This 109-nucleotide RNA sequence belongs to the Rfam family "drum RNA". Rfam classes the family as a small RNA. Rfam describes the family as follows. Firmicutes, Bacteroidetes (1 example), Proteobacteria (2 examples), Spirochaetes (2 examples). The sequence is in the family's curated seed alignment.

RNA sequence: AGGCAUUAACGUAUUUUAUUGUGUUCAGAAACAGUGAAAUACCAGCCUCUGAAGGGUUUUCCGGAGACCUCAUCUGAACUAGGCUAACAGCCGAACGAAAACGGAACAA
Numbered sequence: 001a002g003g004c005a006u007u008a009a010c011g012u013a014u015u016u017u018a019u020u021g022u023g024u025u026c027a028g029a030a031a032c033a034g035u036g037a038a039a040u041a042c043c044a045g046c047c048u049c050u051g052a053a054g055g056g057u058u059u060u061c062c063g064g065a066g067a068c069c070u071c072a073u074c075u076g077a078a079c080u081a082g083g084c085u086a087a088c089a090g091c092c093g094a095a096c097g098a099a100a101a102c103g104g105a106a107c108a109a
Stems, first nucleotide, its partner, number of pairs: 001048004011042012025077004061104003082092004
Dot-bracket structure: ((((......((((((((((((..[[[[..))))))))))))..))))............(((..........]]]]....((((...)))).........))).....